Annotation
Glycine riboswitch aptamer: an 89-nucleotide RNA from Candidatus Thiodiazotropha endolucinida. It scores 68 bits against the family's covariance model. This family represents the bacterial glycine riboswitch. Glycine riboswitches usually consist of two metabolite-binding aptamers domains with similar structures in tandem. The aptamers cooperatively bind glycine to regulate the expression of downstream genes. In Bacillus subtilis, this riboswitch is found upstream of the gcvT operon which controls glycine degradation. The base pairs follow the family's consensus structure.

RNA sequence: UCCACCCCCGUGGGAGAGGCCGGCCCAAGCCGGCGCCGAAGGCGCAAUCCCGCCCGGAAUCGCUCAGGCAAAAGGACCGUGGGGGGAAG
Numbered sequence: 001u002c003c004a005c006c007c008c009c010g011u012g013g014g015a016g017a018g019g020c021c022g023g024c025c026c027a028a029g030c031c032g033g034c035g036c037c038g039a040a041g042g043c044g045c046a047a048u049c050c051c052g053c054c055c056g057g058a059a060u061c062g063c064u065c066a067g068g069c070a071a072a073a074g075g076a077c078c079g080u081g082g083g084g085g086g087a088a089g
Stems, first nucleotide, its partner, number of pairs: 006084008020033004035069003038065002042063003048058002
NCBI's taxonomy places the organism under Bacteria, Gammaproteobacteria, Chromatiales, Sedimenticolaceae, Candidatus Thiodiazotropha.